[Rfam]
RNA sequence: GUGAGCGGUUAGAAGCUCGCUGGGGAUAACGCCAGAGGUGCUGUCACCUCACCCGUUAAGUCGGUCGGCCCCCAGGACGCCUCUAGCCGCUCAU
Numbered sequence: 001g002u003g004a005g006c007g008g009u010u011a012g013a014a015g016c017u018c019g020c021u022g023g024g025g026a027u028a029a030c031g032c033c034a035g036a037g038g039u040g041c042u043g044u045c046a047c048c049u050c051a052c053c054c055g056u057u058a059a060g061u062c063g064g065u066c067g068g069c070c071c072c073c074a075g076g077a078c079g080c081c082u083c084u085a086g087c088c089g090c091u092c093a094u
Base pairs, nucleotide, nucleotide: 001094002093003092004091005090006089007088008087009086010085011084012083013082015080016079017077018076020075021074022073023072024071025070031069032068033067035050036049037048038047039046040045053064054063055062
DUF3800-IV RNA: a 94-nucleotide RNA. It is one of the family's seed sequences. The family's consensus secondary structure is taken from published work.